[Rfam]
RNA sequence: UAUAUCUCUGCAGCAAGGAUCUUCAAAAUCUCAUAAAAUCUGUGCUGUCAUCACCUUCAUUUCUGCUUAAACAUCAGAGAUUGGAGUUGAAAACAGCACAACAUAU
Numbered sequence: 001u002a003u004a005u006c007u008c009u010g011c012a013g014c015a016a017g018g019a020u021c022u023u024c025a026a027a028a029u030c031u032c033a034u035a036a037a038a039u040c041u042g043u044g045c046u047g048u049c050a051u052c053a054c055c056u057u058c059a060u061u062u063c064u065g066c067u068u069a070a071a072c073a074u075c076a077g078a079g080a081u082u083g084g085a086g087u088u089g090a091a092a093a094c095a096g097c098a099c100a101a102c103a104u105a106u
Stems, first nucleotide, its partner, number of pairs: 041100007053088001055086004060080004